[Rfam]
RNA sequence: UUCACAGAGCCUGUUUGGCAUACUGGCUACCUCCAAAUGCUACAAAGAAUGUUAGCAGCUAACAAUAAUGGAGGUGGACAGAAUGCCAAAAUGUCUAUGGAAC
Numbered sequence: 001u002u003c004a005c006a007g008a009g010c011c012u013g014u015u016u017g018g019c020a021u022a023c024u025g026g027c028u029a030c031c032u033c034c035a036a037a038u039g040c041u042a043c044a045a046a047g048a049a050u051g052u053u054a055g056c057a058g059c060u061a062a063c064a065a066u067a068a069u070g071g072a073g074g075u076g077g078a079c080a081g082a083a084u085g086c087c088a089a090a091a092u093g094u095c096u097a098u099g100g101a102a103c
Stems, first nucleotide, its partner, number of pairs: 011093001015089006024080002027077008